[Rfam]
RNA sequence: ACAAGGCAAGAUGUUGGCAUAGCUGAAGUUAAUGUACUGAAUUUGGCUCGAUUACUCGCAGCCUAAUCAGUCCAAACAAGUUUCAGCUCUGCUACAUUAGGCCACUUC
Numbered sequence: 001a002c003a004a005g006g007c008a009a010g011a012u013g014u015u016g017g018c019a020u021a022g023c024u025g026a027a028g029u030u031a032a033u034g035u036a037c038u039g040a041a042u043u044u045g046g047c048u049c050g051a052u053u054a055c056u057c058g059c060a061g062c063c064u065a066a067u068c069a070g071u072c073c074a075a076a077c078a079a080g081u082u083u084c085a086g087c088u089c090u091g092c093u094a095c096a097u098u099a100g101g102c103c104a105c106u107u108c
Stems, first nucleotide, its partner, number of pairs: 005103003011097004016093003022087009
Shown here is a 108-nucleotide RNA from Thelazia callipaeda, a member of the family "mir-72 microRNA precursor family". Rfam links the family to the GO terms RISC complex and miRNA-mediated post-transcriptional gene silencing.